[Rfam]
RNA sequence: CUAAUAUAAGAUACGGUCUCUUGACUUUUAAAUAAAAAAACUAAUAAACGUCUCUUAUAUUUCUUAUUUAAGAGACGUCUCUUAGCUUUUUUAGUUAAAAAUUAAGAGACCGUAUCUUAUAUUAC
Numbered sequence: 001c002u003a004a005u006a007u008a009a010g011a012u013a014c015g016g017u018c019u020c021u022u023g024a025c026u027u028u029u030a031a032a033u034a035a036a037a038a039a040a041c042u043a044a045u046a047a048a049c050g051u052c053u054c055u056u057a058u059a060u061u062u063c064u065u066a067u068u069u070a071a072g073a074g075a076c077g078u079c080u081c082u083u084a085g086c087u088u089u090u091u092u093a094g095u096u097a098a099a100a101a102u103u104a105a106g107a108g109a110c111c112g113u114a115u116c117u118u119a120u121a122u123u124a125c
Stems, first nucleotide, its partner, number of pairs: 002124023026100006033093007041085004046080001
This 125-nucleotide RNA from Brassica cretica belongs to the Rfam family "MIR9563 microRNA precursor family". Rfam 15.1 lists 5,832 matches to the family in 9 species. Pairs were carried over by alignment from the consensus structure, which was predicted with RNAalifold. A search with the family's covariance model found it, with a score of 92 bits.